This 78-nucleotide sequence from Caenorhabditis elegans belongs to the Rfam family "mir-788 microRNA precursor family".
The base pairs follow the family's consensus structure, which was predicted with RNAalifold.
RNA sequence: GCUCACUUUUCCGCUUCUAACUUCCAUUUGCAGAGUUCAAGUAAUCUGGAAAUGGAUUAGAAUCGUGGAAAAGUUAGU
Numbered sequence: 001g002c003u004c005a006c007u008u009u010u011c012c013g014c015u016u017c018u019a020a021c022u023u024c025c026a027u028u029u030g031c032a033g034a035g036u037u038c039a040a041g042u043a044a045u046c047u048g049g050a051a052a053u054g055g056a057u058u059a060g061a062a063u064c065g066u067g068g069a070a071a072a073g074u075u076a077g078u
Stems, first nucleotide, its partner, number of pairs: 001078003005074004012067003015062006023056007031048004036043001
Dot-bracket structure: (((.((((...(((((((((..(((((((.((((.(......).)))).)))))))))))))..)))...)))).)))

For this family Rfam cites "Large-scale sequencing reveals 21U-RNAs and additional microRNAs and endogenous siRNAs in C. elegans" (Ruby et al., Cell, 2006).
Rfam 15.1 lists 3 matches to the family in 3 species.
Its family is annotated with miRNA-mediated post-transcriptional gene silencing and RISC complex in the Gene Ontology.